[Rfam]
RNA sequence: AGUCAUAAUUGCUAUUCCGUAUAAAUAGUGAUUGUGAUGAGCGAUGCGGAUGUGUUGGCGCAUAUCCGCAUCGCGCU
Numbered sequence: 001a002g003u004c005a006u007a008a009u010u011g012c013u014a015u016u017c018c019g020u021a022u023a024a025a026u027a028g029u030g031a032u033u034g035u036g037a038u039g040a041g042c043g044a045u046g047c048g049g050a051u052g053u054g055u056u057g058g059c060g061c062a063u064a065u066c067c068g069c070a071u072c073g074c075g076c077u
Stems, first nucleotide, its partner, number of pairs: 002038007011029006041074003045070011

Notes
A member of the RNA family "SymR antitoxin", 77 nucleotides long. By type it is an antitoxin RNA. Rfam links the family to the GO term mRNA binding.